[Rfam]
RNA sequence: CCUGUUGUACGGCCAACAGUUGCCUACCUGGACAUGCGCGAUGGGUAACCGUCGGGUGUGAAGCUCCGGGGACAAUGUACUUCUCGAAAGAAGACUCACCUCGGCGACGAGGAAGGAGUCGACACUGCCAGCAGCCGUGCGGUGUGAAGG
Numbered sequence: 001c002c003u004g005u006u007g008u009a010c011g012g013c014c015a016a017c018a019g020u021u022g023c024c025u026a027c028c029u030g031g032a033c034a035u036g037c038g039c040g041a042u043g044g045g046u047a048a049c050c051g052u053c054g055g056g057u058g059u060g061a062a063g064c065u066c067c068g069g070g071g072a073c074a075a076u077g078u079a080c081u082u083c084u085c086g087a088a089a090g091a092a093g094a095c096u097c098a099c100c101u102c103g104g105c106g107a108c109g110a111g112g113a114a115g116g117a118g119u120c121g122a123c124a125c126u127g128c129c130a131g132c133a134g135c136c137g138u139g140c141g142g143u144g145u146g147a148a149g150g
Stems, first nucleotide, its partner, number of pairs: 002019006028069005033060005039054006084091002093120004102109002124143005
This 150-nucleotide sequence from Caballeronia sp. SBC1 belongs to the Rfam family "Group II catalytic intron D1-D4-7".
The base pairs follow the family's consensus structure.
The match comes from Rfam's covariance-model search (105 bits).
Lineage of the source: Bacteria > Pseudomonadati > Pseudomonadota > Betaproteobacteria > Caballeronia.
Rfam's curators write: Group II introns are found in rRNA, tRNA and mRNA of organelles in fungi, plants and protists, and also in mRNA in bacteria.
Rfam links the family to the GO term Group II intron splicing.
The literature on the family includes a 2001 paper in Trends Genet by Bonen and Vogel, "The ins and outs of group II introns".